[Rfam]
RNA sequence: GUGUGGAAGAUCGAAGGAACUCCCGGUGUGAUAUAUGACUCGAUUAUAUCACAGCAGUAGUUACCUGAUAUGUUUCACAC
Numbered sequence: 001g002u003g004u005g006g007a008a009g010a011u012c013g014a015a016g017g018a019a020c021u022c023c024c025g026g027u028g029u030g031a032u033a034u035a036u037g038a039c040u041c042g043a044u045u046a047u048a049u050c051a052c053a054g055c056a057g058u059a060g061u062u063a064c065c066u067g068a069u070a071u072g073u074u075u076c077a078c079a080c
Base pairs, nucleotide, nucleotide: 003078004077005076006075007074008073010071011070015066016065017064018062019061020060021059023057025055027053028052029051030050031049032048033047034046035045

This 80-nucleotide sequence from Aedes aegypti belongs to the Rfam family "mir-2944 microRNA precursor family". It scores 71 bits against the family's covariance model. Its family is annotated with miRNA-mediated post-transcriptional gene silencing and RISC complex in the Gene Ontology.